This 91-nucleotide RNA from Chlamydomonas incerta belongs to the Rfam family "Small nucleolar RNA R38".
snoR38 is a C/D box small nucleolar RNA conserved across yeast, human, Arabidopsis and rice. It is encoded in the intron of elongation factor-1 gamma in both pombe and cerevisiae. snoR38 guides the methylation of 2'-O-ribose sites in 28S rRNA.
A search with the family's covariance model found it, with a score of 46 bits.
A reference for the family is Bachellerie et al. (1995), "Antisense snoRNAs: a family of nucleolar RNAs with long complementarities to rRNA", Trends Biochem Sci.
By type it is a C/D-box small nucleolar RNA.
[Rfam]
RNA sequence: GAGAGCGGAUGACGAUAAAAAAGUUAUCCCUGUCGGAAUUCACCAAAGGCCGGUGGAUUUAUGUCGACCAUUAGCUCUAACUGACGCUCUC
Numbered sequence: 001g002a003g004a005g006c007g008g009a010u011g012a013c014g015a016u017a018a019a020a021a022a023g024u025u026a027u028c029c030c031u032g033u034c035g036g037a038a039u040u041c042a043c044c045a046a047a048g049g050c051c052g053g054u055g056g057a058u059u060u061a062u063g064u065c066g067a068c069c070a071u072u073a074g075c076u077c078u079a080a081c082u083g084a085c086g087c088u089c090u091c
Stems, first nucleotide, its partner, number of pairs: 001091007